Shown here is a 171-nucleotide RNA from Dysosmobacter welbionis, a member of the family "M-box riboswitch aptamer (ykoK leader)". Rfam 15.1 lists 1,095 matches to the family in 932 species. M-box riboswitch, also know as ykoK leader is described as a metaloregulatory RNA that sense divalent metals and function as a genetic control element of genes related to divalent metal transport in bacteria. Lineage of the source: Bacteria > Bacillota > Clostridia > Oscillospiraceae > Dysosmobacter. It scores 87 bits against the family's covariance model.
RNA sequence: ACGGCGAAUCGGUAGGUGAGGCUACCACGGGGAUUCGGAAUCAUCCAAAGACUGCUGCCGCACAGUUGUGGAGACACAACCAGCUGGUCAACAGGCCGCGUCGACAACAAGGCGCCGCUUAACGCAGUUGCUACGCCCCGUGAAGCUAAAGCUUGGACGAAGACGCCCAUU
Number, nucleotide and partner (000 for none) at each position: 001a000002c000003g000004g000005c000006g166007a000008a000009u163010c162011g158012g000013u110014a000015g153016g152017u151018g000019a000020g147021g146022c145023u000024a000025c000026c142027a141028c140029g139030g138031g137032g136033a000034u000035u000036c000037g000038g000039a000040a000041u000042c000043a000044u000045c000046c000047a000048a000049a000050g000051a128052c127053u126054g125055c124056u000057g000058c086059c000060g084061c083062a000063c000064a000065g000066u000067u078068g077069u076070g075071g000072a000073g000074a000075c070076a069077c068078a067079a000080c000081c000082a000083g061084c060085u000086g058087g000088u000089c000090a000091a000092c000093a000094g119095g118096c117097c000098g000099c000100g113101u112102c111103g000104a000105c000106a000107a000108c000109a000110a013111g102112g101113c100114g000115c000116c000117g096118c095119u094120u000121a000122a000123c000124g055125c054126a053127g052128u051129u000130g000131c000132u000133a000134c000135g000136c032137c031138c030139c029140g028141u027142g026143a000144a000145g022146c021147u020148a000149a000150a000151g017152c016153u015154u000155g000156g000157a000158c011159g000160a000161a000162g010163a009164c000165g000166c006167c000168c000169a000170u000171u000